Rfam assigns this 103-nucleotide RNA sequence from Nitrosomonas oligotropha to the family "Glycine riboswitch aptamer". The match comes from Rfam's covariance-model search (56 bits). The source organism's lineage runs through Bacteria, Pseudomonadota, Nitrosomonadales, Nitrosomonadaceae and Nitrosomonas.
RNA sequence: GACAGGCAAUCUGGAGAGCGCCGGAAAAUCUUUUCCGGCCACCGAAGGGGCACACGGAUUCAAUUCUGUCAAUCUCUCAGGUAAAAAGGACAGAGGGGCACGA
Numbered sequence: 001g002a003c004a005g006g007c008a009a010u011c012u013g014g015a016g017a018g019c020g021c022c023g024g025a026a027a028a029u030c031u032u033u034u035c036c037g038g039c040c041a042c043c044g045a046a047g048g049g050g051c052a053c054a055c056g057g058a059u060u061c062a063a064u065u066c067u068g069u070c071a072a073u074c075u076c077u078c079a080g081g082u083a084a085a086a087a088g089g090a091c092a093g094a095g096g097g098g099c100a101c102g103a
Base pairs, nucleotide, nucleotide: 007097010094011093012092013091020039021038022037023036024035025034041082042081043080044078045077048076049075050074054069055068056067057066058065